The family of this 100-nucleotide sequence from Gallibacterium salpingitidis is "Aggregatibacter sRNA 22". Rfam 15.1 lists 101 matches to the family in 35 species. On this family, see Oogai et al., DNA Res 2017: "Small RNA repertoires and their intraspecies variation in Aggregatibacter actinomycetemcomitans". The base pairs follow the family's consensus structure, which was predicted with RNAfold. It scores 48 bits against the family's covariance model.
RNA sequence: AAGCAAAGACAAAAAGCGUUAGCUUUUUGAACGUUGCUUUGCAACGACCCGUUAGGGUGAGCAAGUGAACGAAGUACACUUGCGAAUAAAAGUAGGUCGC
Numbered sequence: 001a002a003g004c005a006a007a008g009a010c011a012a013a014a015a016g017c018g019u020u021a022g023c024u025u026u027u028u029g030a031a032c033g034u035u036g037c038u039u040u041g042c043a044a045c046g047a048c049c050c051g052u053u054a055g056g057g058u059g060a061g062c063a064a065g066u067g068a069a070c071g072a073a074g075u076a077c078a079c080u081u082g083c084g085a086a087u088a089a090a091a092g093u094a095g096g097u098c099g100c
Stems, first nucleotide, its partner, number of pairs: 010029008032046006047058004061083007069075001086097002